[Rfam]
RNA sequence: AAUGGGGAAGCCGAAAACCAUUAGAAGAGAGUAGGCG
Number, nucleotide and partner (000 for none) at each position: 001a000002a021003u020004g019005g018006g000007g000008a000009a000010g036011c035012c034013g000014a000015a000016a000017a000018c005019c004020a003021u002022u000023a000024g000025a000026a000027g000028a000029g000030a000031g000032u000033a000034g012035g011036c010037g000
RNA: DUF805b RNA
Organism: Chitinophaga pinensis